The record is a 108-nucleotide RNA from Pyrus ussuriensis x Pyrus communis, which matches "Small nucleolar RNA Z279/snoR105/snoR108" in Rfam. A search with the family's covariance model found it, with a score of 80 bits. The literature on the family includes a 2002 paper in Curr Biol by Marker et al., "Experimental RNomics: identification of 140 candidates for small non-messenger RNAs in the plant Arabidopsis thaliana".
RNA sequence: GGUAUAUGAUGAGUGGUCAUAAUUCGCAAAUGAAAAUGCGAGAGAUGGGUGUCCGUCCCAAAGCCUGUUACGACAAUUGUGCACUCCACUCUUAUACCAUCUUAUCCC
Numbered sequence: 001g002g003u004a005u006a007u008g009a010u011g012a013g014u015g016g017u018c019a020u021a022a023u024u025c026g027c028a029a030a031u032g033a034a035a036a037u038g039c040g041a042g043a044g045a046u047g048g049g050u051g052u053c054c055g056u057c058c059c060a061a062a063g064c065c066u067g068u069u070a071c072g073a074c075a076a077u078u079g080u081g082c083a084c085u086c087c088a089c090u091c092u093u094a095u096a097c098c099a100u101c102u103u104a105u106c107c108c
Base pairs, nucleotide, nucleotide: 001108002107004105014099015098016097017096023042024041025040026039027038047086048085049084050083051082052081065079067077068076

This family includes the plant snoRNAs known as Z279, snoR105 and snoR108. Lineage of the source: Eukaryota > Gunneridae > Rosaceae > Amygdaloideae > Pyrus. The family's consensus secondary structure was predicted with PFOLD.